[Rfam]
Rfam assigns this 85-nucleotide sequence from Echeneis naucrates to the family "mir-19 microRNA precursor family". Its family is annotated with miRNA-mediated post-transcriptional gene silencing and RISC complex in the Gene Ontology. Its Rfam clan is "mir-19 clan".
RNA sequence: GAUCCUGGCCAGCUUUGCAGGGUGGGCAGUCAGCCUGUGUGCAUUAGGUGCAGCUGUGCAAACCCAUGCAAAACUGACUGUGGCC
Numbered sequence: 001g002a003u004c005c006u007g008g009c010c011a012g013c014u015u016u017g018c019a020g021g022g023u024g025g026g027c028a029g030u031c032a033g034c035c036u037g038u039g040u041g042c043a044u045u046a047g048g049u050g051c052a053g054c055u056g057u058g059c060a061a062a063c064c065c066a067u068g069c070a071a072a073a074c075u076g077a078c079u080g081u082g083g084c085c
Stems, first nucleotide, its partner, number of pairs: 003083002006080003010076003014072006020065002023061001026059003032055003

For this family Rfam cites "Identification of novel genes coding for small expressed RNAs" (Lagos-Quintana et al., Science, 2001). Taxonomically the source falls in Echeneis (Eukaryota, Bilateria, Neopterygii, Neoteleostei).